Rfam assigns this 132-nucleotide RNA sequence from Rhizobium sp. YS-1r to the family "TPP riboswitch aptamer (THI element)". A search with the family's covariance model found it, with a score of 68 bits. Pairs were carried over by alignment from the consensus structure, which is taken from published work.
[Rfam]
RNA sequence: CGGAUUCACCAGGGGGGUCCCGGCAAGGGGCUGAGAUACUGCUGGGCAAUACGGCUUUGCCGAUUGUGGCGCAGUGACCCGUUGAACCUGAUCCAGUUCAUACUGGCGUAGGGACGGUGCGGACGCUCACGG
Numbered sequence: 001c002g003g004a005u006u007c008a009c010c011a012g013g014g015g016g017g018u019c020c021c022g023g024c025a026a027g028g029g030g031c032u033g034a035g036a037u038a039c040u041g042c043u044g045g046g047c048a049a050u051a052c053g054g055c056u057u058u059g060c061c062g063a064u065u066g067u068g069g070c071g072c073a074g075u076g077a078c079c080c081g082u083u084g085a086a087c088c089u090g091a092u093c094c095a096g097u098u099c100a101u102a103c104u105g106g107c108g109u110a111g112g113g114a115c116g117g118u119g120c121g122g123a124c125g126c127u128c129a130c131g132g
Base pairs, nucleotide, nucleotide: 007119008118009117010116012080013079014078017031018030019029020028021027038075039074040073041072042071087112088111089110090109093106094105095104096103